[Rfam]
RNA sequence: CCUGACAAAGGCAAACCACUCGAAAGGGUGGGACGCAAAACCACCGGCCUAUGACCUUUUAUUAUUAGAGGUUGCCAGGUAGCGGGGUUUCCAGGC
Number, nucleotide and partner (000 for none) at each position: 001c000002c000003u093004g092005a000006c000007a000008a000009a000010g000011g036012c035013a000014a000015a000016c031017c030018a029019c028020u027021c026022g000023a000024a000025a000026g021027g020028g019029u018030g017031g016032g000033a000034c082035g012036c011037a000038a000039a089040a088041c087042c086043a000044c085045c084046g083047g080048c079049c078050u000051a000052u000053g000054a000055c000056c000057u000058u000059u000060u000061a000062u000063u000064a000065u000066u000067a000068g000069a000070g000071g000072u000073u000074g000075c000076c000077a000078g049079g048080u047081a000082g034083c046084g045085g044086g042087g041088u040089u039090u000091c000092c004093a003094g000095g000096c000